[Rfam]
Nucleotides: 066
Base pairs, nucleotide, nucleotide: 001027003025004024005023006022007021008020010019011018012017030054035052036051037050039049040048041047042046
Number, partner (000 for none) and nucleotide at each position: 001027u002000a003025c004024a005023g006022g007021a008020u009000g010019c011018c012017g013000a014000a015000u016000u017012c018011g019010g020008g021007u022006c023005c024004u025003g026000c027001g028000g029000u030054a031000a032000c033000c034000a035052c036051u037050c038000g039049c040048u041047g042046a043000a044000u045000a046042u047041c048040a049039g050037g051036a052035g053000a054030u055000a056000g057000c058000a059000a060000a061000a062000u063000g064000a065000c066000c
Notes: The record is a 66-nucleotide sequence from Stutzerimonas stutzeri, which matches "Repression of heat shock gene expression (ROSE) element" in Rfam. The literature on the family includes a 2013 paper in PLoS One by Krajewski et al., "Short ROSE-Like RNA Thermometers Control IbpA Synthesis in Pseudomonas Species". Rfam classes the family as an RNA thermoregulator. Lineage of the source: Bacteria > Pseudomonadati > Gammaproteobacteria > Pseudomonadales > Stutzerimonas. Gene Ontology terms of the family: response to temperature stimulus and regulation of translation. It scores 62 bits against the family's covariance model.